The record is a 385-nucleotide part of an RNA from Pedobacter sp. PACM 27299, which matches "Bacterial large subunit ribosomal RNA" in Rfam. It scores 2720 bits against the family's covariance model. Rfam links the family to the GO terms structural constituent of ribosome and ribosome. The base pairs follow the family's consensus structure, which is taken from published work.
RNA sequence: GAUAAGGCGGGAGAGAAACCCGCCCACCGAAAGGAUAAGGUUUCCUGAUCAACGCUAAUCGGAUCAGGGUUAGUCGGGGCCUAAGGAGAACCCGAAGGGGAAAUUCGAUGGACAACUGGUUAAUAUUCCAGUACUUUUUAUAACUGCGAUGUGGGGACGGAGUAGUGACACUGCCGCGAUCUGACGGAAUAGAUCGUUAAAGGGCGUAGGUAUUAGGACUGUAGGCAAAUCCGCAGACCUAGCUGAAACCCGAUAGUACUGCAAACCUUCGGGGGCGUAGAUAGCGCAGGUAAUCAGACUUCCAAGAAAAACCGCUAAGCUUCAGGUUAUAAAAACCCGUACCGCAAACCGACACAGGUAUCCGGGAAGAGAAUUCUAAGGUGCU
Numbered sequence: 001g002a003u004a005a006g007g008c009g010g011g012a013g014a015g016a017a018a019c020c021c022g023c024c025c026a027c028c029g030a031a032a033g034g035a036u037a038a039g040g041u042u043u044c045c046u047g048a049u050c051a052a053c054g055c056u057a058a059u060c061g062g063a064u065c066a067g068g069g070u071u072a073g074u075c076g077g078g079g080c081c082u083a084a085g086g087a088g089a090a091c092c093c094g095a096a097g098g099g100g101a102a103a104u105u106c107g108a109u110g111g112a113c114a115a116c117u118g119g120u121u122a123a124u125a126u127u128c129c130a131g132u133a134c135u136u137u138u139u140a141u142a143a144c145u146g147c148g149a150u151g152u153g154g155g156g157a158c159g160g161a162g163u164a165g166u167g168a169c170a171c172u173g174c175c176g177c178g179a180u181c182u183g184a185c186g187g188a189a190u191a192g193a194u195c196g197u198u199a200a201a202g203g204g205c206g207u208a209g210g211u212a213u214u215a216g217g218a219c220u221g222u223a224g225g226c227a228a229a230u231c232c233g234c235a236g237a238c239c240u241a242g243c244u245g246a247a248a249c250c251c252g253a254u255a256g257u258a259c260u261g262c263a264a265a266c267c268u269u270c271g272g273g274g275g276c277g278u279a280g281a282u283a284g285c286g287c288a289g290g291u292a293a294u295c296a297g298a299c300u301u302c303c304a305a306g307a308a309a310a311a312c313c314g315c316u317a318a319g320c321u322u323c324a325g326g327u328u329a330u331a332a333a334a335a336c337c338c339g340u341a342c343c344g345c346a347a348a349c350c351g352a353c354a355c356a357g358g359u360a361u362c363c364g365g366g367a368a369g370a371g372a373a374u375u376c377u378a379a380g381g382u383g384c385u
Stems, first nucleotide, its partner, number of pairs: 006024006025383004033363004039343002044068006053061002075339004080111002085106003091100003115132005135335011146320002151315004159302004165295001171289004176197006198263001202251003209244003216239002219236004224232002265282001267280002270277002349358002365377004